[Rfam]
RNA sequence: AAUAGUUUUCGGUAGGUGAGGUUACCUUAGGGAUACGGAUUGUUACCGCGGAGUAGUGGAGACACUAUGAGAAGGUUAGCAGAGUACGUCGAUUCAAGGCGUAUUUUAAUACAAUUUCAUUGCCCUAAGAAGCUGAAGCUUGAACGAGCAUUAAUAGAU
Numbered sequence: 001a002a003u004a005g006u007u008u009u010c011g012g013u014a015g016g017u018g019a020g021g022u023u024a025c026c027u028u029a030g031g032g033a034u035a036c037g038g039a040u041u042g043u044u045a046c047c048g049c050g051g052a053g054u055a056g057u058g059g060a061g062a063c064a065c066u067a068u069g070a071g072a073a074g075g076u077u078a079g080c081a082g083a084g085u086a087c088g089u090c091g092a093u094u095c096a097a098g099g100c101g102u103a104u105u106u107u108a109a110u111a112c113a114a115u116u117u118c119a120u121u122g123c124c125c126u127a128a129g130a131a132g133c134u135g136a137a138g139c140u141u142g143a144a145c146g147a148g149c150a151u152u153a154a155u156a157g158a159u
Stems, first nucleotide, its partner, number of pairs: 005155003011145001013097001015140003020134003026129007039115005046074001049071001055066004082106004088100003
RNA: M-box riboswitch aptamer (ykoK leader)
Organism: Clostridium uliginosum